[Rfam]
RNA sequence: UAGCGAAAAAGGCAAAUCUGUUCGAAAGUCAGAGACGCAAAGCCACAGGCCUAAGGUCAAUUUGACUAUGGCGGCUGGGUUACCCGA
Numbered sequence: 001u002a003g004c005g006a007a008a009a010a011g012g013c014a015a016a017u018c019u020g021u022u023c024g025a026a027a028g029u030c031a032g033a034g035a036c037g038c039a040a041a042g043c044c045a046c047a048g049g050c051c052u053a054a055g056g057u058c059a060a061u062u063u064g065a066c067u068a069u070g071g072c073g074g075c076u077g078g079g080u081u082a083c084c085c086g087a
Stems, first nucleotide, its partner, number of pairs: 012038002017033004023028001041081004046077003049072003056066004
c-di-GMP-I riboswitch aptamer: an 87-nucleotide RNA sequence from Siminovitchia fortis. About the family: GEMM was predicted in a large-scale screen for bacterial structured RNA regulatory elements. Pairs were carried over by alignment from the consensus structure, which is taken from published work. It scores 78 bits against the family's covariance model. NCBI's taxonomy places the organism under Bacteria, Bacillota, Bacilli, Caryophanales, Siminovitchia. Its family is annotated with cyclic-di-GMP binding in the Gene Ontology.